RNA sequence: UGUUUAUUAAAAGCGCCAGGACUAGCUAGUGGCUAGUUGACGAGGUGGAGGAUUAUCGAAUCGGAUCGGCGGGUACCUCCCGGCUGUACUUCUCAGUCGACAUGUUUUUAUUUCAAAACAAUUAGGUGACUUAUUGUACAAGAAUAGAAACAAGAAGUAAA
Numbered sequence: 001u002g003u004u005u006a007u008u009a010a011a012a013g014c015g016c017c018a019g020g021a022c023u024a025g026c027u028a029g030u031g032g033c034u035a036g037u038u039g040a041c042g043a044g045g046u047g048g049a050g051g052a053u054u055a056u057c058g059a060a061u062c063g064g065a066u067c068g069g070c071g072g073g074u075a076c077c078u079c080c081c082g083g084c085u086g087u088a089c090u091u092c093u094c095a096g097u098c099g100a101c102a103u104g105u106u107u108u109u110a111u112u113u114c115a116a117a118a119c120a121a122u123u124a125g126g127u128g129a130c131u132u133a134u135u136g137u138a139c140a141a142g143a144a145u146a147g148a149a150a151c152a153a154g155a156a157g158u159a160a161a
Stems, first nucleotide, its partner, number of pairs: 020038008047080005056069004081099006104151007119136004124131002

Shown here is a 161-nucleotide RNA sequence from Gracilibacillus halotolerans, a member of the family "glmS glucosamine-6-phosphate activated ribozyme aptamer". The family's consensus secondary structure is taken from published work. It is annotated as a riboswitch. The organism belongs to Gracilibacillus, within Bacteria. A reference for the family is Jansen et al. (2006), "Backbone and nucleobase contacts to glucosamine-6-phosphate in the glmS ribozyme", Nat Struct Mol Biol.